[Rfam]
RNA: ZMP/ZTP riboswitch aptamer (pfl RNA motif)
Organism: Streptomyces sp. 846.5
Nucleotides: 089
Base pairs, nucleotide, nucleotide: 003053006050007049008048009047010046011045012044015041016040017077018076019075020074024037025036026035027034066084067083068082069081070080
Number, partner (000 for none) and nucleotide at each position: 001000g002000g003053g004000g005000g006050c007049u008048g009047u010046c011045g012044c013000g014000a015041c016040u017077g018076g019075c020074g021000a022000a023000c024037g025036u026035g027034g028000a029000a030000g031000c032000a033000a034027c035026c036025a037024c038000g039000a040016g041015g042000g043000a044012g045011c046010g047009a048008c049007g050006g051000a052000g053003c054000a055000c056000c057000g058000c059000c060000a061000c062000c063000g064000g065000a066084g067083u068082g069081c070080c071000g072000u073000a074020c075019g076018c077017c078000u079000g080070g081069g082068c083067a084066u085000c086000c087000g088000g089000g